The record is a 46-nucleotide RNA from Caenorhabditis briggsae, which matches "Histone 3' UTR stem-loop" in Rfam. By type it is a cis-regulatory element.
[Rfam]
Nucleotides: 046
Stems, first nucleotide, its partner, number of pairs: 006021006
Number, partner (000 for none) and nucleotide at each position: 001000c002000c003000a004000a005000c006021g007020g008019c009018c010017c011016u012000c013000u014000u015000u016011a017010g018009g019008g020007c021006c022000a023000c024000a025000a026000a027000u028000a029000a030000c031000a032000c033000g034000a035000a036000u037000c038000c039000u040000a041000a042000a043000a044000u045000a046000u
Pairs were carried over by alignment from the consensus structure, which is taken from published work. A reference for the family is Zhang et al. (2014), "Molecular mechanisms for the regulation of histone mRNA stem-loop-binding protein by phosphorylation", Proc Natl Acad Sci U S A. About the family: The mRNAs of metazoan histone genes lack a poly-A tail. 3' end processing occurs at a site between a highly conserved stem-loop (modelled by this family) and a purine rich region around 20 nts downstream (the histone downstream element, or HDE).